[Rfam]
A member of the RNA family "Bacterial large signal recognition particle RNA" from Paenibacillus sabuli, 268 nucleotides long.
The signal recognition particle (SRP) is a universally conserved ribonucleoprotein involved in the co-translational targeting of proteins to membranes.
Rfam classes the family as a non-coding RNA gene.
A reference for the family is Rosenblad et al. (2003), "SRPDB: Signal Recognition Particle Database", Nucleic Acids Res.
The family's consensus secondary structure is taken from published work.
RNA sequence: CCGUGCUAGACGGGGAGGUAGCGGUGCCCUGUAACUCGCAAUCCGCUAUAGCGAGGUUGAAUUCCUGUCGUAGGUUCUGUUUGAUGCGGGGUCUGGCAUCUGUGAACAGUGCUGACGGUCGGGUCCUCCGCAAUUGGCUCUUGUGAACCCGGUCAGGUCCGGAAGGGAGCAGCCGUAAGCAAGUUCGUCGAUGUGCCGGGGGAGCGCCUGACCUGAGCUGGAAUCAGAAAAGCCGCCUGGGUCGCAUGAAUCGAGGAGAGGUGCACGG
Numbered sequence: 001c002c003g004u005g006c007u008a009g010a011c012g013g014g015g016a017g018g019u020a021g022c023g024g025u026g027c028c029c030u031g032u033a034a035c036u037c038g039c040a041a042u043c044c045g046c047u048a049u050a051g052c053g054a055g056g057u058u059g060a061a062u063u064c065c066u067g068u069c070g071u072a073g074g075u076u077c078u079g080u081u082u083g084a085u086g087c088g089g090g091g092u093c094u095g096g097c098a099u100c101u102g103u104g105a106a107c108a109g110u111g112c113u114g115a116c117g118g119u120c121g122g123g124u125c126c127u128c129c130g131c132a133a134u135u136g137g138c139u140c141u142u143g144u145g146a147a148c149c150c151g152g153u154c155a156g157g158u159c160c161g162g163a164a165g166g167g168a169g170c171a172g173c174c175g176u177a178a179g180c181a182a183g184u185u186c187g188u189c190g191a192u193g194u195g196c197c198g199g200g201g202g203a204g205c206g207c208c209u210g211a212c213c214u215g216a217g218c219u220g221g222a223a224u225c226a227g228a229a230a231a232g233c234c235g236c237c238u239g240g241g242u243c244g245c246a247u248g249a250a251u252c253g254a255g256g257a258g259a260g261g262u263g264c265a266c267g268g
Base pairs, nucleotide, nucleotide: 001268002267003266004265005264006263009058010057011056012030013029014028015027017025019023035055036054037053038052039051064261065260066259068257069256073252074251075250076249077248082244083243084242085241087239088238089237090236094235095234099228100227101226102225107221108219109218110217117213118212119211120210121209122208123207124206125202126201127200128199129198130197131193132192134191135190136189137188138187140183141182142181143180144179150175151174152173153172158167159166160165